The family of this 81-nucleotide RNA sequence from Helicoverpa armigera is "mir-998 microRNA precursor family".
Pairs were carried over by alignment from the consensus structure, which was predicted with RNAalifold.
Rfam links the family to the GO terms miRNA-mediated post-transcriptional gene silencing and RISC complex.
The family has 7 seed sequences and 83 matches in Rfam 15.1.
[Rfam]
RNA sequence: CGGGCGGCGGCCGCGAGCUGUAUCCCGUGCGGCUCCAGUGCGCAUGUAGCACCAUGGGAUUCAGCUCACGGACGCCGCCAC
Numbered sequence: 001c002g003g004g005c006g007g008c009g010g011c012c013g014c015g016a017g018c019u020g021u022a023u024c025c026c027g028u029g030c031g032g033c034u035c036c037a038g039u040g041c042g043c044a045u046g047u048a049g050c051a052c053c054a055u056g057g058g059a060u061u062c063a064g065c066u067c068a069c070g071g072a073c074g075c076c077g078c079c080a081c
Stems, first nucleotide, its partner, number of pairs: 003079005009073001012071001015067002018064003023059007033049002036046002